[Rfam]
RNA sequence: UGGCCAGUGAUGAAAUUCUAGUUGUACAGACACUACGAGUGAAAUGAACUGCAACAACACCCAUAGAAUCUCUGAGGCCU
Numbered sequence: 001u002g003g004c005c006a007g008u009g010a011u012g013a014a015a016u017u018c019u020a021g022u023u024g025u026a027c028a029g030a031c032a033c034u035a036c037g038a039g040u041g042a043a044a045u046g047a048a049c050u051g052c053a054a055c056a057a058c059a060c061c062c063a064u065a066g067a068a069u070c071u072c073u074g075a076g077g078c079c080u
Stems, first nucleotide, its partner, number of pairs: 002079004